Alphaproteobacterial ar14: a 117-nucleotide RNA from Phyllobacterium endophyticum.
Smr14C2 was renamed NfeR1 (Nodule Formation Efficiency RNA) highly expressed in salt stress and during the symbiotic interaction on legume roots.
The literature on the family includes a 2017 paper in Environ Microbiol by Robledo et al., "A conserved alpha-proteobacterial small RNA contributes to osmoadaptation and symbiotic efficiency of rhizobia on legume roots".
By type it is a small RNA.
Its family is annotated with biological process involved in symbiotic interaction in the Gene Ontology.
RNA sequence: CUAAGUCCAUCGGGUUCUCUCCUCCCGGAAACCCGGGCACCGAAUGCAGCAACCUCCUCCCUUGCUGCAUUUUAAGAUCAAGGACCGCUGCACCUCCUCCCGCAGCGGUCCUUUUCG
Dot-bracket structure: ......((...((.(((..........))).))..))....((((((((((...........))))))))))........(((((((((((..........))))))))))).....